[Rfam]
Source information: This 150-nucleotide RNA from Carlito syrichta belongs to the Rfam family "U12 minor spliceosomal RNA". The family has 62 seed sequences and 2,106 matches in Rfam 15.1. Rfam classes the family as a spliceosomal small nuclear RNA. Clan: U2 clan. On this family, see Tarn and Steitz, Trends Biochem Sci 1997: "Pre-mRNA splicing: the discovery of a new spliceosome doubles the challenge".
RNA sequence: AUGCCUUAAACUUAUGAGUAAGGAAAAUAAUAUUUCAGGGUGACACCUAAAUCCUUACUGCUAAUGUGAGAUGAAUUUUUGAGUGGGUAAAGUUUGCCCCUAAGGUGACCUGCCUACUUUGCAGGAUGCCUGGGAGUCCUGAUCAGCCCA
Numbered sequence: 001a002u003g004c005c006u007u008a009a010a011c012u013u014a015u016g017a018g019u020a021a022g023g024a025a026a027a028u029a030a031u032a033u034u035u036c037a038g039g040g041u042g043a044c045a046c047c048u049a050a051a052u053c054c055u056u057a058c059u060g061c062u063a064a065u066g067u068g069a070g071a072u073g074a075a076u077u078u079u080u081g082a083g084u085g086g087g088u089a090a091a092g093u094u095u096g097c098c099c100c101u102a103a104g105g106u107g108a109c110c111u112g113c114c115u116a117c118u119u120u121g122c123a124g125g126a127u128g129c130c131u132g133g134g135a136g137u138c139c140u141g142a143u144c145a146g147c148c149c150a
Stems, first nucleotide, its partner, number of pairs: 004023005034051002037048003054070005084150005092144001094142003100134002103131005109125005
Dot-bracket structure: ...(((((..........)))))..........((.(((......))).))..(((((.......))))).............(((((...(.(((...((.(((((.(((((.......))))).))))).)).....))).).)))))